This 108-nucleotide RNA sequence from Thermoflavifilum thermophilum belongs to the Rfam family "Bacteroidales small SRP". The base pairs follow the family's consensus structure, which is taken from published work. Clan: SRP clan. A reference for the family is Ryan et al. (2020), "A high-resolution transcriptome map identifies small RNA regulation of metabolism in the gut microbe Bacteroides thetaiotaomicron", Nat Commun. Lineage of the source: Bacteria > Bacteroidota > Chitinophagales > Chitinophagaceae > Thermoflavifilum.
RNA sequence: UUGCUCUUGGCAAGUCUUACACGACCAGCUCCUGCUGAACUCCCCCAGGGCAGGAAUGCAGCAAGGGUAGGCGGUCGCAGCGGUGCGAUGUAAGCCACUUGCCAUUUU
Numbered sequence: 001u002u003g004c005u006c007u008u009g010g011c012a013a014g015u016c017u018u019a020c021a022c023g024a025c026c027a028g029c030u031c032c033u034g035c036u037g038a039a040c041u042c043c044c045c046c047a048g049g050g051c052a053g054g055a056a057u058g059c060a061g062c063a064a065g066g067g068u069a070g071g072c073g074g075u076c077g078c079a080g081c082g083g084u085g086c087g088a089u090g091u092a093a094g095c096c097a098c099u100u101g102c103c104a105u106u107u108u
Base pairs, nucleotide, nucleotide: 008104009103010102011101012100013099014098015097017093018092019091020090021089022087023086024084025083